RNA sequence: GAGUUGUCCGUGUGGAGUUGACCACAAGCCUAUUCGUGGUCUGUAAGGUGGCUGAAAUAAUGCCUUACGACCCGCCGUUGACUAAAGUUGCCUCUUCGGGGGUUUGACUGGACGGUGGGCGUGCCUCCAUACGGGAAGCUCUGCAGUAAAACAUCUUCAGCGAUUGGCGGCUGAAGAGCACAUUACCUGCU
Numbered sequence: 001g002a003g004u005u006g007u008c009c010g011u012g013u014g015g016a017g018u019u020g021a022c023c024a025c026a027a028g029c030c031u032a033u034u035c036g037u038g039g040u041c042u043g044u045a046a047g048g049u050g051g052c053u054g055a056a057a058u059a060a061u062g063c064c065u066u067a068c069g070a071c072c073c074g075c076c077g078u079u080g081a082c083u084a085a086a087g088u089u090g091c092c093u094c095u096u097c098g099g100g101g102g103u104u105u106g107a108c109u110g111g112a113c114g115g116u117g118g119g120c121g122u123g124c125c126u127c128c129a130u131a132c133g134g135g136a137a138g139c140u141c142u143g144c145a146g147u148a149a150a151a152c153a154u155c156u157u158c159a160g161c162g163a164u165u166g167g168c169g170g171c172u173g174a175a176g177a178g179c180a181c182a183u184u185a186c187c188u189g190c191u
Base pairs, nucleotide, nucleotide: 001141002140003139004138009133010132011131012130013129014128015127071119072118073117074116075115076114077113078112079111143190144189145188146187154177155176156175157174158173159172160171
Dot-bracket structure: ((((....(((((((.......................................................(((((((((...............................))))))))).......)))))))....)))).((((.......(((((((..........))))))).........)))).